[Rfam]
A member of the RNA family "Ascomycota telomerase RNA" from Hapsidospora chrysogena, 375 nucleotides of a longer RNA. The organism belongs to Hapsidospora chrysogena, within Eukaryota. The family is grouped with related families in Rfam's "Telomerase clan".
RNA sequence: ACACAAACAGAAGGAGCUCUCGGUACCGGUCCUGGACUCUUGGAAGGCUAUGGCGCGACUGCGCGGAAAACAUACGACGGCAUCGGGAUUUUGCGAUACUUGUUUGGGAGAGGCGAUACCGGUACAUAGGCACUGGCGUCUCUGGGUGCUUAUUCCUCGUCACGAUUGCUUGCAUCACUGGGACCCAUCUCGUGUUGGAGUCAAAGUUUCGUACUUGUCCGGCGGUGUUGGUACUGUGGCGUAAAGGACCUGCUCCCAGGAUCCUAAGCCUCGUCCCGUCCUUUCAUAUUGGAUCAAGGGGCAAGCCAAGCAGGGAGGCAGCCCCGGCUGUCCUCGUGCCUGAAAUGGUGGGAGGACAGCCCCCCUAUGGUGAGG
Numbered sequence: 001a002c003a004c005a006a007a008c009a010g011a012a013g014g015a016g017c018u019c020u021c022g023g024u025a026c027c028g029g030u031c032c033u034g035g036a037c038u039c040u041u042g043g044a045a046g047g048c049u050a051u052g053g054c055g056c057g058a059c060u061g062c063g064c065g066g067a068a069a070a071c072a073u074a075c076g077a078c079g080g081c082a083u084c085g086g087g088a089u090u091u092u093g094c095g096a097u098a099c100u101u102g103u104u105u106g107g108g109a110g111a112g113g114c115g116a117u118a119c120c121g122g123u124a125c126a127u128a129g130g131c132a133c134u135g136g137c138g139u140c141u142c143u144g145g146g147u148g149c150u151u152a153u154u155c156c157u158c159g160u161c162a163c164g165a166u167u168g169c170u171u172g173c174a175u176c177a178c179u180g181g182g183a184c185c186c187a188u189c190u191c192g193u194g195u196u197g198g199a200g201u202c203a204a205a206g207u208u209u210c211g212u213a214c215u216u217g218u219c220c221g222g223c224g225g226u227g228u229u230g231g232u233a234c235u236g237u238g239g240c241g242u243a244a245a246g247g248a249c250c251u252g253c254u255c256c257c258a259g260g261a262u263c264c265u266a267a268g269c270c271u272c273g274u275c276c277c278g279u280c281c282u283u284u285c286a287u288a289u290u291g292g293a294u295c296a297a298g299g300g301g302c303a304a305g306c307c308a309a310g311c312a313g314g315g316a317g318g319c320a321g322c323c324c325c326g327g328c329u330g331u332c333c334u335c336g337u338g339c340c341u342g343a344a345a346u347g348g349u350g351g352g353a354g355g356a357c358a359g360c361c362c363c364c365c366u367a368u369g370g371u372g373a374g375g
Base pairs, nucleotide, nucleotide: 182202183201184200185198186197187196204216205215206214207213
Dot-bracket structure: .....................................................................................................................................................................................((((((........))).))).((((.....))))...............................................................................................................................................................
On this family, see Qi et al., Nucleic Acids Res 2013: "The common ancestral core of vertebrate and fungal telomerase RNAs". The match comes from Rfam's covariance-model search (369 bits). It is annotated as a non-coding RNA gene.